The family of this 82-nucleotide RNA from Merluccius polli is "mir-219 microRNA precursor family". Its family is annotated with miRNA-mediated post-transcriptional gene silencing and RISC complex in the Gene Ontology. A reference for the family is Lim et al. (2003), "Vertebrate microRNA genes", Science. NCBI's taxonomy places the organism under Eukaryota, Neopterygii, Clupeocephala, Gadiformes, Merluccius. The match comes from Rfam's covariance-model search (73 bits).
RNA sequence: UUAGCGGCUGAUUGUCCAAACGCAAUUCUUGAGUCACGUCAAAACUCAACCACAAGAAUUGUGUAUGGACAUCUGUUGCUGC
Numbered sequence: 001u002u003a004g005c006g007g008c009u010g011a012u013u014g015u016c017c018a019a020a021c022g023c024a025a026u027u028c029u030u031g032a033g034u035c036a037c038g039u040c041a042a043a044a045c046u047c048a049a050c051c052a053c054a055a056g057a058a059u060u061g062u063g064u065a066u067g068g069a070c071a072u073c074u075g076u077u078g079c080u081g082c
Stems, first nucleotide, its partner, number of pairs: 002081006010073003014070005021063011